EGFOA RNA: a 109-nucleotide RNA. Pairs were carried over by alignment from the consensus structure, which is taken from published work. The family's RNA type in Rfam is small RNA. Rfam's curators put it in the seed alignment.
[Rfam]
RNA sequence: ACUAUUCCGGAUUAUCCCGUCCUUGUACUGAUAUUACAGUAGGAACUAUUAGCGAGUAACUGCAAAAACUUACGUGGUAAAGCAAGACCCGGACACGUUGAAGCUAAUA
Number, nucleotide and partner (000 for none) at each position: 001a000002c000003u000004a000005u000006u093007c092008c091009g090010g089011a000012u000013u000014a000015u000016c000017c000018c000019g088020u087021c000022c086023u085024u084025g083026u041027a040028c039029u038030g037031a000032u000033a000034u000035u000036a000037c030038a029039g028040u027041a026042g000043g000044a000045a000046c000047u109048a108049u107050u106051a105052g104053c103054g000055a000056g000057u000058a071059a070060c000061u068062g000063c000064a000065a000066a000067a000068a061069c000070u059071u058072a098073c097074g096075u095076g094077g000078u000079a000080a000081a000082g000083c025084a024085a023086g022087a020088c019089c010090c009091g008092g007093a006094c076095a075096c074097g073098u072099u000100g000101a000102a000103g053104c052105u051106a050107a049108u048109a047